[Rfam]
RNA: Molybdenum/Tungsten riboswitch aptamer (Moco RNA motif)
Organism: Pelotomaculum isophthalicicum
RNA sequence: GUGUGAAAGAAUCUCCGAGCUUGGCAUACCUAAGCAAACAAGGUACGGUAGCCAAGCCGUUAGGGUACGGAUGGGAAACCCCCGUACCUCCCGGUGCGGAAAGGAGGAGUUUUUAGAAAGAA
Numbered sequence: 001g002u003g004u005g006a007a008a009g010a011a012u013c014u015c016c017g018a019g020c021u022u023g024g025c026a027u028a029c030c031u032a033a034g035c036a037a038a039c040a041a042g043g044u045a046c047g048g049u050a051g052c053c054a055a056g057c058c059g060u061u062a063g064g065g066u067a068c069g070g071a072u073g074g075g076a077a078a079c080c081c082c083c084g085u086a087c088c089u090c091c092c093g094g095u096g097c098g099g100a101a102a103g104g105a106g107g108a109g110u111u112u113u114u115a116g117a118a119a120g121a122a
Stems, first nucleotide, its partner, number of pairs: 004115001006113001012107005019057007027050004034044002063089008073080002090099002